Description:
This 335-nucleotide part of an RNA from Furfurilactobacillus rossiae belongs to the Rfam family "Bacterial large subunit ribosomal RNA". The match comes from Rfam's covariance-model search (2926 bits). The family's consensus secondary structure is taken from published work. Lineage of the source: Bacteria > Bacillati > Bacillota > Lactobacillaceae > Furfurilactobacillus rossiae.
RNA sequence: CGAGUGAACUCUCGUUAAGGAACUCGGCAAAAUGACCCCGUAACUUCGGAAUAAGGGGUGCUGCACGCAAGUGUAGCCGCAGUGAAAAGGCCCAGGCGACUGUUUAUCAAAAACACAGGUUUCUGCAAAAUCGUAAGAUGACGUAUAGGGGCUGACGCCUGCCCAGUGCUGGAAGGUUAAAAGGAUGGGUUAGCGUAAGCGAAGCUCAGAAUUGAAGCCCCAGUGAACGGCGGCCGUAACUAUAACGGUCCUAAGGUAGCGAAAUUCCUUGUCGGGUAAGUUCCGACCCGCAUGAAAGGCGUAACGAUCUGGGCACUGUCUCAACGAGAGACUCG
Numbered sequence: 001c002g003a004g005u006g007a008a009c010u011c012u013c014g015u016u017a018a019g020g021a022a023c024u025c026g027g028c029a030a031a032a033u034g035a036c037c038c039c040g041u042a043a044c045u046u047c048g049g050a051a052u053a054a055g056g057g058g059u060g061c062u063g064c065a066c067g068c069a070a071g072u073g074u075a076g077c078c079g080c081a082g083u084g085a086a087a088a089g090g091c092c093c094a095g096g097c098g099a100c101u102g103u104u105u106a107u108c109a110a111a112a113a114c115a116c117a118g119g120u121u122u123c124u125g126c127a128a129a130a131u132c133g134u135a136a137g138a139u140g141a142c143g144u145a146u147a148g149g150g151g152c153u154g155a156c157g158c159c160u161g162c163c164c165a166g167u168g169c170u171g172g173a174a175g176g177u178u179a180a181a182a183g184g185a186u187g188g189g190u191u192a193g194c195g196u197a198a199g200c201g202a203a204g205c206u207c208a209g210a211a212u213u214g215a216a217g218c219c220c221c222a223g224u225g226a227a228c229g230g231c232g233g234c235c236g237u238a239a240c241u242a243u244a245a246c247g248g249u250c251c252u253a254a255g256g257u258a259g260c261g262a263a264a265u266u267c268c269u270u271g272u273c274g275g276g277u278a279a280g281u282u283c284c285g286a287c288c289c290g291c292a293u294g295a296a297a298g299g300c301g302u303a304a305c306g307a308u309c310u311g312g313g314c315a316c317u318g319u320c321u322c323a324a325c326g327a328g329a330g331a332c333u334c335g
Base pairs, nucleotide, nucleotide: 001335002334003333004332009330010329011328012327013326014325015324016323018321019320020319035059036058037057038056039055044049060077061076062075063074064073065072066071078082090314091313092312093311094310095309096308097306098305101115102114103113118153119152120151121150122149123148124147125146126143130139131138132137156301157300158299159298161231162230163229166228167227168224169223170222171221172220175219176218177217181213182212186208187207188206189205190204193200194199232250233249234248235247236246237245251255261288271287272286273285274284275283276282